[Rfam]
c-di-AMP riboswitch aptamer (ydaO/yuaA leader): a 188-nucleotide RNA from Arthrobacter terrae. Rfam 15.1 lists 7,607 matches to the family in 2,262 species. Pairs were carried over by alignment from the consensus structure. NCBI's taxonomy places the organism under Bacteria, Bacillati, Actinomycetes, Micrococcales, Arthrobacter.
RNA sequence: ACCGCUCAUGGUCCGUUCGCAACAAUCGUCUGGCAGGGGCGGGGGAACCAAUAUCGGGCUUCGCAAGAAGUCCUUGGGGUUAAGUCGCCAAGCAUUCCAGUGGAAGAGAUUCUGCUUCGGAUGUACGGCGGCCGGGUGACUCCCAUCCGAAUCCGACAGCUUACCUCGCAGGCAUUGGGAGAGGCAUC
Numbered sequence: 001a002c003c004g005c006u007c008a009u010g011g012u013c014c015g016u017u018c019g020c021a022a023c024a025a026u027c028g029u030c031u032g033g034c035a036g037g038g039g040c041g042g043g044g045g046a047a048c049c050a051a052u053a054u055c056g057g058g059c060u061u062c063g064c065a066a067g068a069a070g071u072c073c074u075u076g077g078g079g080u081u082a083a084g085u086c087g088c089c090a091a092g093c094a095u096u097c098c099a100g101u102g103g104a105a106g107a108g109a110u111u112c113u114g115c116u117u118c119g120g121a122u123g124u125a126c127g128g129c130g131g132c133c134g135g136g137u138g139a140c141u142c143c144c145a146u147c148c149g150a151a152u153c154c155g156a157c158a159g160c161u162u163a164c165c166u167c168g169c170a171g172g173c174a175u176u177g178g179g180a181g182a183g184g185c186a187u188c
Stems, first nucleotide, its partner, number of pairs: 002038001003036001039169006049076002077154003085131004134148004